[Rfam]
RNA sequence: AAAUUGAAUAAUAUUUACACUCGUAUAUGAUUAGUAAUAAGGUCUAACCGUUUCUACCGAGCAACCGUAAAAUGCUUGACUAUGGGUGUUUAUAUUUGUGAU
Numbered sequence: 001a002a003a004u005u006g007a008a009u010a011a012u013a014u015u016u017a018c019a020c021u022c023g024u025a026u027a028u029g030a031u032u033a034g035u036a037a038u039a040a041g042g043u044c045u046a047a048c049c050g051u052u053u054c055u056a057c058c059g060a061g062c063a064a065c066c067g068u069a070a071a072a073u074g075c076u077u078g079a080c081u082a083u084g085g086g087u088g089u090u091u092a093u094a095u096u097u098g099u100g101a102u
Base pairs, nucleotide, nucleotide: 018088019087020086021085022084023083024082025081029049031047032046033045034044058078059077060076061075062074063073
Dot-bracket structure: .................((((((((...(.((((.........)))).)........((((((.........))))))..))))))))..............
Description:
Rfam assigns this 102-nucleotide sequence from Clostridium thailandense to the family "Purine riboswitch aptamer". The family's consensus secondary structure is taken from published work. Riboswitches are metabolite binding domains within certain messenger RNAs that serve as precision sensors for their corresponding targets. On this family, see Mandal et al., Cell 2003: "Riboswitches Control Fundamental Biochemical Pathways in Bacillus subtilis and Other Bacteria".